[Rfam]
RNA sequence: CGACGUCUUCAGGGCGGGGUGCAAUUCCCCACCGGCGGUAUGGCUGCCUGCGCAGCCGAGCCCGCGAGCGCUUUUGCCGCCCGGCAAAAGGUCAGCAGAUCUGGUGCGAUGCCAGAGCCGACGGUCACAGUCCGGAUGAAAGAAGAUGACG
Numbered sequence: 001c002g003a004c005g006u007c008u009u010c011a012g013g014g015c016g017g018g019g020u021g022c023a024a025u026u027c028c029c030c031a032c033c034g035g036c037g038g039u040a041u042g043g044c045u046g047c048c049u050g051c052g053c054a055g056c057c058g059a060g061c062c063c064g065c066g067a068g069c070g071c072u073u074u075u076g077c078c079g080c081c082c083g084g085c086a087a088a089a090g091g092u093c094a095g096c097a098g099a100u101c102u103g104g105u106g107c108g109a110u111g112c113c114a115g116a117g118c119c120g121a122c123g124g125u126c127a128c129a130g131u132c133c134g135g136a137u138g139a140a141a142g143a144a145g146a147u148g149a150c151g
Stems, first nucleotide, its partner, number of pairs: 004148007017029003031131002033120002035065004060118002068096002100116005122134003

The family of this 151-nucleotide RNA sequence from Vogesella sp. EB is "FMN riboswitch aptamer (RFN element)".
Taxonomically the source falls in Vogesella (Bacteria, Pseudomonadota, Neisseriales, Chromobacteriaceae).